[Rfam]
RNA sequence: UGUUAAGCGAAGUUGGUUUGUGACCGUCACUAACGGGCAGUGAUCAGAUAUUUGCUCGUUUUGACGUUCGCAAAAUGAACUCGCUUGAC
Numbered sequence: 001u002g003u004u005a006a007g008c009g010a011a012g013u014u015g016g017u018u019u020g021u022g023a024c025c026g027u028c029a030c031u032a033a034c035g036g037g038c039a040g041u042g043a044u045c046a047g048a049u050a051u052u053u054g055c056u057c058g059u060u061u062u063g064a065c066g067u068u069c070g071c072a073a074a075a076u077g078a079a080c081u082c083g084c085u086u087g088a089c
Base pairs, nucleotide, nucleotide: 003088004087005086006085007084008083009082010081013078014077015076017074018073019072020071021070022069023068025066026065032060033059034058035057036056037055038054039053